[Rfam]
RNA sequence: GUAAGCUGAAGUGCAGUUAACGGUUUAUAAUAAACUGAGGAAACUCCACCCACUAUACAGAAAUCAGGAUGUUUUUAAUUAACAUACAUUGAGAAUUGUGACCCUAGUAUAGAAACGAUACAACUUUCAUUAUUGCUUUGAAAAAUGAUACAAAUAAGUUGAUGAUGCUUAUGAAAGUUGGUGAAACGACUAAUCCCUGAAGUGCAAGAGUAUAAUUAUUGUCACUUAAUAAUAUUUUCUGUAAUAUAAAUGACAAGGUAACUCGCUACAAGAUUAAUACUGCAAGAUUAAUAUCUAACAUAAGGUGGGUUACUCUCAGCAGGC
Numbered sequence: 001g002u003a004a005g006c007u008g009a010a011g012u013g014c015a016g017u018u019a020a021c022g023g024u025u026u027a028u029a030a031u032a033a034a035c036u037g038a039g040g041a042a043a044c045u046c047c048a049c050c051c052a053c054u055a056u057a058c059a060g061a062a063a064u065c066a067g068g069a070u071g072u073u074u075u076u077a078a079u080u081a082a083c084a085u086a087c088a089u090u091g092a093g094a095a096u097u098g099u100g101a102c103c104c105u106a107g108u109a110u111a112g113a114a115a116c117g118a119u120a121c122a123a124c125u126u127u128c129a130u131u132a133u134u135g136c137u138u139u140g141a142a143a144a145a146u147g148a149u150a151c152a153a154a155u156a157a158g159u160u161g162a163u164g165a166u167g168c169u170u171a172u173g174a175a176a177g178u179u180g181g182u183g184a185a186a187c188g189a190c191u192a193a194u195c196c197c198u199g200a201a202g203u204g205c206a207a208g209a210g211u212a213u214a215a216u217u218a219u220u221g222u223c224a225c226u227u228a229a230u231a232a233u234a235u236u237u238u239c240u241g242u243a244a245u246a247u248a249a250a251u252g253a254c255a256a257g258g259u260a261a262c263u264c265g266c267u268a269c270a271a272g273a274u275u276a277a278u279a280c281u282g283c284a285a286g287a288u289u290a291a292u293a294u295c296u297a298a299c300a301u302a303a304g305g306u307g308g309g310u311u312a313c314u315c316u317c318a319g320c321a322g323g324c
Base pairs, nucleotide, nucleotide: 001324002323005320006319007318008317009316010314011313012284013283014282015281016280017279021037022036023035024034025033042311043310044309046308047307048306049305050304051204052203053202054201056241057240059238060237061236064200065199066198067197068196069085070084071083072082073081086099087098088097090095100195101194105192106191107190108189121180122179123178124177125176126175127174128173129172130171150159151158208264209263210262211261220255221254222253223252224251
This 324-nucleotide sequence from a Methanobacteriaceae archaeon belongs to the Rfam family "Archaeal RNase P". Its family is annotated with ribonuclease P activity, tRNA processing and multimeric ribonuclease P complex in the Gene Ontology. The match comes from Rfam's covariance-model search (149 bits). For this family Rfam cites "Ribonuclease P: unity and diversity in a tRNA processing ribozyme" (Frank and Pace, Annu Rev Biochem, 1998). The family's RNA type in Rfam is ribozyme.